The family of this 350-nucleotide RNA sequence from Actinomyces sp. S6-Spd3 is "Bacterial RNase P class A". Its family is annotated with tRNA processing, ribonuclease P activity and dimeric ribonuclease P complex in the Gene Ontology. Pairs were carried over by alignment from the consensus structure, which is taken from published work. A search with the family's covariance model found it, with a score of 317 bits. Lineage of the source: Bacteria > Bacillati > Actinomycetales > Actinomycetaceae > Actinomyces. The family's RNA type in Rfam is ribozyme.
[Rfam]
RNA sequence: CGAGUUGGCUGGGCGGCCGCGCGACUUUAAGUCUCGAGGAACGUCCGGGCUCCACAGGGCAGGAUGGUGGCUAACAGCCACCCGGGGUGACCCGCGGGAAAGUGCCACAGAAAAGAAACCGCUGCGUAAGCAGUAAGGGUGAAAAGGUGAGGUAAGAGCUCACCAGCGUUGCGGGCGACCGCAUCGGCUUGGUAAACCCCAUCCGGAGCAAGACCGAGCAGCAGACGUAAAGAAUUGCCCGUUCGAUGUCUGCGGGUAGGUUGCUUGAGGCCAUCGGCAACGGUGGUCCUAGAUAGAUGGUCGCCACUACGGAAGUAGGACAAAACCCGGCGUACAGGCUGACUCGAAUG
Number, nucleotide and partner (000 for none) at each position: 001c346002g345003a344004g343005u342006u341007g340008g339009c338010u337011g335012g305013g304014c303015g302016g301017c300018c299019g000020c036021g035022c000023g033024a032025c031026u030027u000028u000029a000030a026031g025032u024033c023034u000035c021036g020037a000038g000039g000040a000041a333042c332043g331044u000045c330046c329047g328048g327049g326050c208051u207052c206053c205054a000055c000056a000057g240058g239059g238060c237061a000062g204063g203064a202065u201066g200067g081068u080069g079070g078071c077072u000073a000074a000075c000076a000077g071078c070079c069080a068081c067082c096083c094084g093085g092086g091087g000088u000089g000090a000091c086092c085093c084094g083095c000096g082097g199098g198099a000100a000101a000102g197103u196104g193105c192106c191107a000108c000109a000110g000111a000112a000113a000114a000115g000116a000117a000118a000119c138120c137121g134122c133123u132124g131125c130126g000127u000128a000129a000130g125131c124132a123133g122134u121135a000136a000137g120138g119139g000140u000141g000142a000143a000144a000145a000146g164147g163148u162149g161150a160151g159152g000153u000154a000155a000156g000157a000158g000159c151160u150161c149162a148163c147164c146165a000166g188167c186168g185169u000170u183171g182172c181173g180174g179175g000176c000177g000178a000179c174180c173181g172182c171183a170184u000185c168186g167187g000188c166189u000190u000191g106192g105193u104194a000195a000196a103197c102198c098199c097200c066201a065202u064203c063204c062205g053206g052207a051208g050209c000210a000211a000212g262213a261214c260215c259216g000217a000218g000219c000220a000221g253222c252223a251224g250225a249226c248227g000228u000229a000230a000231a000232g244233a243234a242235u241236u000237g060238c059239c058240c057241g235242u234243u233244c232245g000246a000247u000248g226249u225250c224251u223252g222253c221254g000255g000256g000257u000258a000259g215260g214261u213262u212263g000264c000265u000266u000267g000268a000269g288270g287271c286272c285273a284274u283275c282276g281277g000278c000279a000280a000281c276282g275283g274284u273285g272286g271287u270288c269289c000290u000291a000292g000293a000294u000295a000296g000297a000298u000299g018300g017301u016302c015303g014304c013305c012306a000307c000308u000309a000310c000311g000312g000313a000314a000315g000316u000317a000318g000319g000320a000321c000322a000323a000324a000325a000326c049327c048328c047329g046330g045331c043332g042333u041334a000335c011336a000337g010338g009339c008340u007341g006342a005343c004344u003345c002346g001347a000348a000349u000350g000